[Rfam]
RNA sequence: GUGUUUGGGUAAUCGCUGCAUCGUUUAGAUGUAGAGGAAAGUCCAUGCUCACACAAUCUGAGAUUGAUUGUAGUGUUCGUGCCUGACGAAGUCAUAAGUCAGGGUAGUCUUUUAUAAAGGCUAACGGCAGGUGACUUACCUACGUUCUUUUGAAUACGGUAUGCGAACCUUGAAAGUGCCACAGUGACGAAGUCUGACUGGAAACGGUCAGAGUGGAACGAGGUAAACCCCACGAGUGAGAAACCCAAAAUAAGGUAGGGGCACCCUUGAGAAGGAAUUGAACGGAUCAAGGGACAGAUGAAUUCUGUAGACAGAUGAUUACCACCUCCGUACGAGGGAUGACCCCCGUUUGCAGUACAAGAGGUACAGAACAUGGCUUACAAAA
Numbered sequence: 001g002u003g004u005u006u007g008g009g010u011a012a013u014c015g016c017u018g019c020a021u022c023g024u025u026u027a028g029a030u031g032u033a034g035a036g037g038a039a040a041g042u043c044c045a046u047g048c049u050c051a052c053a054c055a056a057u058c059u060g061a062g063a064u065u066g067a068u069u070g071u072a073g074u075g076u077u078c079g080u081g082c083c084u085g086a087c088g089a090a091g092u093c094a095u096a097a098g099u100c101a102g103g104g105u106a107g108u109c110u111u112u113u114a115u116a117a118a119g120g121c122u123a124a125c126g127g128c129a130g131g132u133g134a135c136u137u138a139c140c141u142a143c144g145u146u147c148u149u150u151u152g153a154a155u156a157c158g159g160u161a162u163g164c165g166a167a168c169c170u171u172g173a174a175a176g177u178g179c180c181a182c183a184g185u186g187a188c189g190a191a192g193u194c195u196g197a198c199u200g201g202a203a204a205c206g207g208u209c210a211g212a213g214u215g216g217a218a219c220g221a222g223g224u225a226a227a228c229c230c231c232a233c234g235a236g237u238g239a240g241a242a243a244c245c246c247a248a249a250a251u252a253a254g255g256u257a258g259g260g261g262c263a264c265c266c267u268u269g270a271g272a273a274g275g276a277a278u279u280g281a282a283c284g285g286a287u288c289a290a291g292g293g294a295c296a297g298a299u300g301a302a303u304u305c306u307g308u309a310g311a312c313a314g315a316u317g318a319u320u321a322c323c324a325c326c327u328c329c330g331u332a333c334g335a336g337g338g339a340u341g342a343c344c345c346c347c348g349u350u351u352g353c354a355g356u357a358c359a360a361g362a363g364g365u366a367c368a369g370a371a372c373a374u375g376g377c378u379u380a381c382a383a384a385a
Stems, first nucleotide, its partner, number of pairs: 004385003007381001008323007016034006039379003043376005048240005053071006077235005082103006104125001105123006126230002129170004137161004144155003176228002178224003193212008244260003264293007294308005325364004330358004
Source information:
Shown here is a 385-nucleotide sequence from Salipaludibacillus keqinensis, a member of the family "Bacterial RNase P class B". Its family is annotated with tRNA processing, ribonuclease P activity and dimeric ribonuclease P complex in the Gene Ontology. The match comes from Rfam's covariance-model search (321 bits). Ribonuclease P (RNase P) is a ubiquitous endoribonuclease, found in archaea, bacteria and eukarya as well as chloroplasts and mitochondria. The base pairs follow the family's consensus structure, which is taken from published work. Rfam classes the family as a ribozyme.